This 145-nucleotide RNA sequence from Sciurus carolinensis belongs to the Rfam family "Small nucleolar RNA U109". Its family is annotated with nucleolus and RNA processing in the Gene Ontology.
RNA sequence: UUGCUUGAUGGGAAUUCUUCCUCUGUUCCUUGCUCUAUUAGGAGUAAGACUUCGGUAUCUAUAAUAUGCUAUAUCAAAUAAAGGCAUUUUCAGGGUUGCUGGCCCUGCAGAGAAGAUUAAGUGAUAGUCUAUUUCUCCUACAUUA
Numbered sequence: 001u002u003g004c005u006u007g008a009u010g011g012g013a014a015u016u017c018u019u020c021c022u023c024u025g026u027u028c029c030u031u032g033c034u035c036u037a038u039u040a041g042g043a044g045u046a047a048g049a050c051u052u053c054g055g056u057a058u059c060u061a062u063a064a065u066a067u068g069c070u071a072u073a074u075c076a077a078a079u080a081a082a083g084g085c086a087u088u089u090u091c092a093g094g095g096u097u098g099c100u101g102g103c104c105c106u107g108c109a110g111a112g113a114a115g116a117u118u119a120a121g122u123g124a125u126a127g128u129c130u131a132u133u134u135c136u137c138c139u140a141c142a143u144u145a
Stems, first nucleotide, its partner, number of pairs: 003069002006066001008065002017048003021044004083138002095125002099121001100119003104115001106113001
It is annotated as an H/ACA-box small nucleolar RNA.